[Rfam]
RNA: permuted transfer-messenger RNA
RNA sequence: CGUUGUAUGAAGUGAAGUAAAAGGCAUUUUGGACGCCGGUUCGACUCCGGCCACCUCCACCAAUAAACAGCAGAGGGGGUGUAAGGGAUUCGACAGAGUGAUUAGUAACAGAGCAGACAACGGGGUAGGCGAUGACCUUAAAUCAAGCAAACACUAUAAUUGACAACAAUUAUGAAAUGGAAGAUUACGCCUUAGCGGCCUAA
Numbered sequence: 001c002g003u004u005g006u007a008u009g010a011a012g013u014g015a016a017g018u019a020a021a022a023g024g025c026a027u028u029u030u031g032g033a034c035g036c037c038g039g040u041u042c043g044a045c046u047c048c049g050g051c052c053a054c055c056u057c058c059a060c061c062a063a064u065a066a067a068c069a070g071c072a073g074a075g076g077g078g079g080u081g082u083a084a085g086g087g088a089u090u091c092g093a094c095a096g097a098g099u100g101a102u103u104a105g106u107a108a109c110a111g112a113g114c115a116g117a118c119a120a121c122g123g124g125g126u127a128g129g130c131g132a133u134g135a136c137c138u139u140a141a142a143u144c145a146a147g148c149a150a151a152c153a154c155u156a157u158a159a160u161u162g163a164c165a166a167c168a169a170u171u172a173u174g175a176a177a178u179g180g181a182a183g184a185u186u187a188c189g190c191c192u193u194a195g196c197g198g199c200c201u202a203a
Stems, first nucleotide, its partner, number of pairs: 001122005013112001025100003029096003035051005052081007123138004